The record is a 135-nucleotide RNA from Lederbergia galactosidilytica, which matches "FMN riboswitch aptamer (RFN element)" in Rfam.
RNA sequence: AUUCAUCUUCGGGGCGUGGUGAAAUUCCCGACCGGCGGUAAUGAAACAACGGUUUCUAAGCCCGCGAGCUUCUUUGAAGCAGGAUUUGGUGUGAUUCCAAAGCCGACAGUAUAGUCUGGAUGGGAGAAGAUGGAG
Numbered sequence: 001a002u003u004c005a006u007c008u009u010c011g012g013g014g015c016g017u018g019g020u021g022a023a024a025u026u027c028c029c030g031a032c033c034g035g036c037g038g039u040a041a042u043g044a045a046a047c048a049a050c051g052g053u054u055u056c057u058a059a060g061c062c063c064g065c066g067a068g069c070u071u072c073u074u075u076g077a078a079g080c081a082g083g084a085u086u087u088g089g090u091g092u093g094a095u096u097c098c099a100a101a102g103c104c105g106a107c108a109g110u111a112u113a114g115u116c117u118g119g120a121u122g123g124g125a126g127a128a129g130a131u132g133g134a135g
Stems, first nucleotide, its partner, number of pairs: 003133008018028002031115002033105002035065004060103002070079001085101005107118003